Lysine riboswitch aptamer: a 174-nucleotide RNA from Veillonella sp. HPA0037.

Nucleotides: 174
Base pairs, nucleotide, nucleotide: 007168008167009166010165011164016079017078018077019076020075021074022073023072024071032064033063034062035061036060037059038058039057083110084109085108086107088105089104090103091102092101111137112136113135114134115133116132117131118130119129120128121127139159140158141157142156143155144154145153
Number, partner (000 for none) and nucleotide at each position: 001000u002000a003000a004000u005000a006000a007168g008167g009166u010165a011164g012000a013000g014000g015000c016079g017078c018077g019076g020075g021074u022073a023072u024071a025000a026000a027000u028000a029000g030000u031000c032064a033063u034062c035061a036060u037059g038058a039057g040000g041000a042000g043000c044000u045000g046000g047000c048000a049000a050000a051000c052000a053000a054000u055000g056000a057039u058038u059037c060036a061035u062034g063033a064032u065000a066000a067000a068000a069000g070000g071024u072023g073022u074021a075020c076019u077018u078017g079016c080000c081000g082000a083110a084109g085108u086107g087000g088105g089104a090103u091102g092101a093000c094000a095000g096000c097000c098000a099000a100000a101092u102091c103090a104089u105088c106000g107086u108085g109084c110083u111137g112136g113135u114134u115133g116132u117131c118130u119129a120128u121127u122000u123000a124000a125000u126000a127121g128120g129119u130118a131117g132116a133115c134114g135113a136112c137111u138000g139159u140158c141157a142156c143155c144154a145153a146000u147000a148000u149000u150000a151000c152000a153145u154144u155143g156142g157141u158140g159139g160000a161000g162000u163000g164011c165010u166009a167008u168007c169000a170000u171000a172000a173000u174000u